A member of the RNA family "Bacterial RNase P class A" from Schumannella sp. 10F1B-5-1, 376 nucleotides long. The source organism's lineage runs through Bacteria, Bacillati, Actinomycetes, Microbacteriaceae and Schumannella.

[Rfam]
RNA sequence: ACGGGCCGGCAGACGGUCGCGUCACCUCCGCGAGGGGGUGCCGAGGAACGUCCGGGCUCCACAGAGCAGGGCGGUGGGCAACACCCACCCGGGGUGACCCGCGAGAAAGUGCAACAGAGAGCAGACCGCCUCGGACCGGCUCCUUCGGGAACCGGACCGCGGUAAGGGUGAAACGGUGGUGUAAGAGACCACCAGGGGCCCGAGCGAUCGGGCUCGCUGGGUAAACCUCGCCCGGAGCAAGGUCAGACAGACACCGAUGAAGCGGCUCGCCGAGGUGUCGGGUAGACCGCUGGAGGGCUGCGGCGACGCAGCCCCGAGAUAGAUGGCCGUCACGGAGAGAUCCGUACAGAACCCGGCGUAUCGCCGGCCCGUUCCU
Numbered sequence: 001a002c003g004g005g006c007c008g009g010c011a012g013a014c015g016g017u018c019g020c021g022u023c024a025c026c027u028c029c030g031c032g033a034g035g036g037g038g039u040g041c042c043g044a045g046g047a048a049c050g051u052c053c054g055g056g057c058u059c060c061a062c063a064g065a066g067c068a069g070g071g072c073g074g075u076g077g078g079c080a081a082c083a084c085c086c087a088c089c090c091g092g093g094g095u096g097a098c099c100c101g102c103g104a105g106a107a108a109g110u111g112c113a114a115c116a117g118a119g120a121g122c123a124g125a126c127c128g129c130c131u132c133g134g135a136c137c138g139g140c141u142c143c144u145u146c147g148g149g150a151a152c153c154g155g156a157c158c159g160c161g162g163u164a165a166g167g168g169u170g171a172a173a174c175g176g177u178g179g180u181g182u183a184a185g186a187g188a189c190c191a192c193c194a195g196g197g198g199c200c201c202g203a204g205c206g207a208u209c210g211g212g213c214u215c216g217c218u219g220g221g222u223a224a225a226c227c228u229c230g231c232c233c234g235g236a237g238c239a240a241g242g243u244c245a246g247a248c249a250g251a252c253a254c255c256g257a258u259g260a261a262g263c264g265g266c267u268c269g270c271c272g273a274g275g276u277g278u279c280g281g282g283u284a285g286a287c288c289g290c291u292g293g294a295g296g297g298c299u300g301c302g303g304c305g306a307c308g309c310a311g312c313c314c315c316g317a318g319a320u321a322g323a324u325g326g327c328c329g330u331c332a333c334g335g336a337g338a339g340a341u342c343c344g345u346a347c348a349g350a351a352c353c354c355g356g357c358g359u360a361u362c363g364c365c366g367g368c369c370c371g372u373u374c375c376u
Stems, first nucleotide, its partner, number of pairs: 001372010011361001012331007020043002023040006048359003052356005057237004064268004069233005074088005089103001090101004104228002109226002111222002126167002128163003132159003136155004175193006195217001196215008241288004250279006262270002295314008